[Rfam]
RNA sequence: UCAGGGCGAGGUUCUGUCAUUCGCUCCGGACUCUUCUCGUUGCUUGCAGUCAGUGCAUGACAGAACUUGACCCUGGC
Numbered sequence: 001u002c003a004g005g006g007c008g009a010g011g012u013u014c015u016g017u018c019a020u021u022c023g024c025u026c027c028g029g030a031c032u033c034u035u036c037u038c039g040u041u042g043c044u045u046g047c048a049g050u051c052a053g054u055g056c057a058u059g060a061c062a063g064a065a066c067u068u069g070a071c072c073c074u075g076g077c
Stems, first nucleotide, its partner, number of pairs: 004073003009068008022055004028051001030050003
mir-148/mir-152 microRNA precursor family: a 77-nucleotide RNA from Petromyzon marinus. Rfam 15.1 lists 1,272 matches to the family in 609 species. A reference for the family is Lagos-Quintana et al. (2002), "Identification of tissue-specific microRNAs from mouse", Curr Biol.